A member of the RNA family "Repression of heat shock gene expression (ROSE) element" from Pseudomonas sp. 1239, 67 nucleotides long. NCBI's taxonomy places the organism under Bacteria, Pseudomonadota, Gammaproteobacteria, Pseudomonadales, Pseudomonas. The base pairs follow the family's consensus structure.
RNA sequence: UACGCGAUGCCGAAGUCGGGUCGCGCAAUCACCAACUCGCUGAUAUUUCAGGAGAUGUACCAUGACU
Numbered sequence: 001u002a003c004g005c006g007a008u009g010c011c012g013a014a015g016u017c018g019g020g021u022c023g024c025g026c027a028a029u030c031a032c033c034a035a036c037u038c039g040c041u042g043a044u045a046u047u048u049c050a051g052g053a054g055a056u057g058u059a060c061c062a063u064g065a066c067u
Stems, first nucleotide, its partner, number of pairs: 001027001003025006010019003031056001036054003040051004